Shown here is a 243-nucleotide RNA sequence from Trifolium subterraneum, a member of the family "Small nucleolar RNA U3". From the family's description: Small nucleolar RNAs (snoRNAs) are involved in the processing and modification of rRNA in the nucleolus. There are two main classes of snoRNAs: the box C/D class, and the box H/ACA class. Rfam links the family to the GO terms RNA processing and nucleolus. NCBI's taxonomy places the organism under Eukaryota, Viridiplantae, Tracheophyta, Mesangiospermae, Trifolium. A reference for the family is Zwieb (1997), "The uRNA database", Nucleic Acids Res.
[Rfam]
RNA sequence: AUUAUCUGAUUUUAAAUCACUGAUAGCUUCAAAUUUAUUCUGAAAUAGAAAAACAAACAAUAUAUAUAGUCAUUAUGAAGAAAAAGAUGUCCAUAUCAAGCUGGACGAUGAAUCAUGACUGUGUGAUCAGAGCGUGAUUAACGGCGAAGAUGAUCUCCAAAUUAUGGGCAUCAUCUCUAGCUGUAGAGGAUCGUUCUCAGUUGGUUGAACUGACCGAGACGGUCACACAGUUGUCUGACAGAC
Numbered sequence: 001a002u003u004a005u006c007u008g009a010u011u012u013u014a015a016a017u018c019a020c021u022g023a024u025a026g027c028u029u030c031a032a033a034u035u036u037a038u039u040c041u042g043a044a045a046u047a048g049a050a051a052a053a054c055a056a057a058c059a060a061u062a063u064a065u066a067u068a069g070u071c072a073u074u075a076u077g078a079a080g081a082a083a084a085a086g087a088u089g090u091c092c093a094u095a096u097c098a099a100g101c102u103g104g105a106c107g108a109u110g111a112a113u114c115a116u117g118a119c120u121g122u123g124u125g126a127u128c129a130g131a132g133c134g135u136g137a138u139u140a141a142c143g144g145c146g147a148a149g150a151u152g153a154u155c156u157c158c159a160a161a162u163u164a165u166g167g168g169c170a171u172c173a174u175c176u177c178u179a180g181c182u183g184u185a186g187a188g189g190a191u192c193g194u195u196c197u198c199a200g201u202u203g204g205u206u207g208a209a210c211u212g213a214c215c216g217a218g219a220c221g222g223u224c225a226c227a228c229a230g231u232u233g234u235c236u237g238a239c240a241g242a243c
Stems, first nucleotide, its partner, number of pairs: 002078004007072005015065001101241003118231011132194003143182003148176004156168004197217002200214006